[Rfam]
RNA sequence: AAAGCAGGGAUUGUGUAUCGGUGAUGUGCUUUUUCAUAUGAAUAAUAUGGAAACCUAUUGCGCAUUUUAGCCGAAAGAAUUUCCUGCAACAUCUAAAUUGUUUGGUGAGGAUGGAAGGUUGCGUAUCAUGUUUUCAAUUGGUAUCUCAACAACCUUCUUUUGCUGAUCU
Numbered sequence: 001a002a003a004g005c006a007g008g009g010a011u012u013g014u015g016u017a018u019c020g021g022u023g024a025u026g027u028g029c030u031u032u033u034u035c036a037u038a039u040g041a042a043u044a045a046u047a048u049g050g051a052a053a054c055c056u057a058u059u060g061c062g063c064a065u066u067u068u069a070g071c072c073g074a075a076a077g078a079a080u081u082u083c084c085u086g087c088a089a090c091a092u093c094u095a096a097a098u099u100g101u102u103u104g105g106u107g108a109g110g111a112u113g114g115a116a117g118g119u120u121g122c123g124u125a126u127c128a129u130g131u132u133u134u135c136a137a138u139u140g141g142u143a144u145c146u147c148a149a150c151a152a153c154c155u156u157c158u159u160u161u162g163c164u165g166a167u168c169u
Base pairs, nucleotide, nucleotide: 004087005086006085007084008083009082010081013063014062015061016060017059104163107160108159109158110157111156113154114153118150119149120148121147
Shown here is a 169-nucleotide sequence from Protea cynaroides, a member of the family "small nucleolar RNA snoR135". Rfam links the family to the GO terms nucleolus and RNA processing. It is annotated as an H/ACA-box small nucleolar RNA.